[Rfam]
RNA sequence: GAUUCCUCGAUCGAAAGUUGGAUCUAUAAUAUUGGAUUUCACCUGAAUGACAUCUCUCCCUCCCGGAGCUCAAAUAUCAUAUACGCCUACAAAAUAAAGAGCCUUGAAUACUAUAUAUAAAAAAAAACGCUAGACCUAACAAGAUUAAGUGAAUAUCUAAAAUUAAAUAAAAAGAUUUUUAAAAAAAAUAAAUUAAAAAGCUUUUGUUUCUCUUCA
Numbered sequence: 001g002a003u004u005c006c007u008c009g010a011u012c013g014a015a016a017g018u019u020g021g022a023u024c025u026a027u028a029a030u031a032u033u034g035g036a037u038u039u040c041a042c043c044u045g046a047a048u049g050a051c052a053u054c055u056c057u058c059c060c061u062c063c064c065g066g067a068g069c070u071c072a073a074a075u076a077u078c079a080u081a082u083a084c085g086c087c088u089a090c091a092a093a094a095u096a097a098a099g100a101g102c103c104u105u106g107a108a109u110a111c112u113a114u115a116u117a118u119a120a121a122a123a124a125a126a127a128c129g130c131u132a133g134a135c136c137u138a139a140c141a142a143g144a145u146u147a148a149g150u151g152a153a154u155a156u157c158u159a160a161a162a163u164u165a166a167a168u169a170a171a172a173a174g175a176u177u178u179u180u181a182a183a184a185a186a187a188a189u190a191a192a193u194u195a196a197a198a199a200g201c202u203u204u205u206g207u208u209u210c211u212c213u214u215c216a
Base pairs, nucleotide, nucleotide: 148213149212151210152209153208157206159204160203
RNA: Antisense RNA which regulates isiA expression